[Rfam]
RNA sequence: GAAUGUCUUCGGGGCGGGGUGGAAGUCCCCACCGGCGGUAGGCGCGGCGACGCGCGAGCCCGCGAGCGCCGCCGGCAGCUGCCGGCGGGUCAGCAGAUCCGGUCGAAAUCCGGAGCCGACGGUCAGAGUCCGGAUGCGAGAAGACGACC
Numbered sequence: 001g002a003a004u005g006u007c008u009u010c011g012g013g014g015c016g017g018g019g020u021g022g023a024a025g026u027c028c029c030c031a032c033c034g035g036c037g038g039u040a041g042g043c044g045c046g047g048c049g050a051c052g053c054g055c056g057a058g059c060c061c062g063c064g065a066g067c068g069c070c071g072c073c074g075g076c077a078g079c080u081g082c083c084g085g086c087g088g089g090u091c092a093g094c095a096g097a098u099c100c101g102g103u104c105g106a107a108a109u110c111c112g113g114a115g116c117c118g119a120c121g122g123u124c125a126g127a128g129u130c131c132g133g134a135u136g137c138g139a140g141a142a143g144a145c146g147a148c149c
Stems, first nucleotide, its partner, number of pairs: 004146007017029003031129002033118002035063004058116002066094002098114005120132003